Nucleotides: 129
Stems, first nucleotide, its partner, number of pairs: 004058004019047002022044002025040004075117002078114001080112002090108001
Number, partner (000 for none) and nucleotide at each position: 001000a002000c003000c004058c005057u006056u007055c008000u009000g010000g011000u012000c013000u014000u015000u016000u017000u018000c019047u020046c021000a022044u023043c024000a025040g026039a027038u028037c029000u030000c031000a032000a033000c034000a035000c036000u037028g038027g039026u040025c041000u042000u043023g044022g045000a046020g047019g048000u049000c050000a051000g052000a053000a054000a055007g056006a057005a058004g059000u060000a061000a062000a063000a064000g065000u066000a067000c068000a069000c070000u071000g072000a073000a074000g075117c076116u077000a078114g079000c080112c081111u082000c083000a084000c085000a086000a087000c088000g089000a090108u091000c092000a093000a094000g095000u096000c097000u098000g099000g100000u101000a102000u103000a104000g105000a106000g107000c108090a109000u110000a111081g112080g113000u114078c115000c116076a117075g118000a119000u120000u121000c122000a123000a124000a125000c126000a127000g128000g129000u

Shown here is a 129-nucleotide sequence from Cricetulus griseus, a member of the family "Small nucleolar RNA SNORA61".
The family's consensus secondary structure was predicted with PFOLD.
A search with the family's covariance model found it, with a score of 85 bits.
Rfam classes the family as an H/ACA-box small nucleolar RNA.
The source organism's lineage runs through Eukaryota, Sarcopterygii, Theria, Cricetinae and Cricetulus.
ACA61 is a member of the H/ACA class of snoRNA that guide the sites of modification of uridines to pseudouridines.